RNA sequence: UUGCCGGUGAAAGUCCGGUCCGGGUAGCUGCCAGGUGGCCCGGUAGCAGGCUGGCGGCUUCAUCUGGAAACGGAUGUGGUCGAAGCCCAGCGUCAGAAGCCCUGCAAGGGGGAGCGAAGAUGCGGUCCGCAGCAUAA
Numbered sequence: 001u002u003g004c005c006g007g008u009g010a011a012a013g014u015c016c017g018g019u020c021c022g023g024g025u026a027g028c029u030g031c032c033a034g035g036u037g038g039c040c041c042g043g044u045a046g047c048a049g050g051c052u053g054g055c056g057g058c059u060u061c062a063u064c065u066g067g068a069a070a071c072g073g074a075u076g077u078g079g080u081c082g083a084a085g086c087c088c089a090g091c092g093u094c095a096g097a098a099g100c101c102c103u104g105c106a107a108g109g110g111g112g113a114g115c116g117a118a119g120a121u122g123c124g125g126u127c128c129g130c131a132g133c134a135u136a137a
Stems, first nucleotide, its partner, number of pairs: 020043005050091005055082005064073001066071001100112004114130003
Rfam assigns this 137-nucleotide RNA from Rhodococcus sp. 1168 to the family "Group II catalytic intron D1-D4-4".
From the family's description: Group II introns are found in rRNA, tRNA and mRNA of organelles in fungi, plants and protists, and also in mRNA in bacteria.
The literature on the family includes a 2001 paper in Trends Genet by Bonen and Vogel, "The ins and outs of group II introns".